[Rfam]
RNA: Ribosomal protein L20 leader
RNA sequence: GAGAAAAAGCAGAGGCCACCGCUUCUCGCCUUGUAACUAACAAGUUGCUGGGCUAAAGAACGUUGAAUGGAUUUUUAUAUCCAAUAUGAAACGGGUGGCGUGUGCCAUCCGUUUUUCUGCAUUCUC
Number, nucleotide and partner (000 for none) at each position: 001g000002a000003g000004a000005a000006a000007a000008a000009g000010c000011a026012g025013a024014g023015g022016c021017c000018a000019c000020c000021g016022c015023u014024u013025c012026u011027c000028g053029c052030c051031u000032u000033g048034u047035a046036a045037c044038u000039a000040a000041c000042a000043a000044g037045u036046u035047g034048c033049u000050g000051g030052g029053c028054u000055a000056a000057a000058g000059a000060a000061c000062g000063u000064u000065g000066a000067a000068u000069g000070g000071a000072u000073u000074u000075u000076u000077a000078u000079a000080u000081c000082c000083a000084a000085u000086a000087u000088g000089a000090a113091a112092c111093g110094g109095g108096u107097g106098g105099c104100g000101u000102g000103u000104g099105c098106c097107a096108u095109c094110c093111g092112u091113u090114u000115u000116u000117c000118u000119g000120c000121a000122u000123u000124c000125u000126c000